[Rfam]
RNA: ALIL pseudoknot
RNA sequence: AGACUUUGCGCGGCGGAGCUCGACCGCCCACUGAAGCGAUGAUUACCUUCAUCGAUGCACACCGCUCGGUGCUCGGGGUCGAGCCGGUCUGCAGACUGCUGCCGAUUGCCCCA
Numbered sequence: 001a002g003a004c005u006u007u008g009c010g011c012g013g014c015g016g017a018g019c020u021c022g023a024c025c026g027c028c029c030a031c032u033g034a035a036g037c038g039a040u041g042a043u044u045a046c047c048u049u050c051a052u053c054g055a056u057g058c059a060c061a062c063c064g065c066u067c068g069g070u071g072c073u074c075g076g077g078g079u080c081g082a083g084c085c086g087g088u089c090u091g092c093a094g095a096c097u098g099c100u101g102c103c104g105a106u107u108g109c110c111c112c113a
Stems, first nucleotide, its partner, number of pairs: 012028005075112004085108002088105002091102004